Rfam assigns this 81-nucleotide sequence from Aegilops tauschii to the family "Small nucleolar RNA U54". The base pairs follow the family's consensus structure, which was predicted with PFOLD. The match comes from Rfam's covariance-model search (80 bits). A reference for the family is Chen et al. (2003), "The high diversity of snoRNAs in plants: identification and comparative study of 120 snoRNA genes from Oryza sativa", Nucleic Acids Res.
RNA sequence: AGCUCAGUGAUUUUAGCCAAAUAAACUUUGGUCAUAUACGCUAUUCUGAAUAUGUUGUUGUAAAAUAAAUUUAUGAGAGCU
Numbered sequence: 001a002g003c004u005c006a007g008u009g010a011u012u013u014u015a016g017c018c019a020a021a022u023a024a025a026c027u028u029u030g031g032u033c034a035u036a037u038a039c040g041c042u043a044u045u046c047u048g049a050a051u052a053u054g055u056u057g058u059u060g061u062a063a064a065a066u067a068a069a070u071u072u073a074u075g076a077g078a079g080c081u
Stems, first nucleotide, its partner, number of pairs: 001081005
Taxonomically the source falls in Aegilops tauschii (Eukaryota, Tracheophyta, Mesangiospermae, commelinids).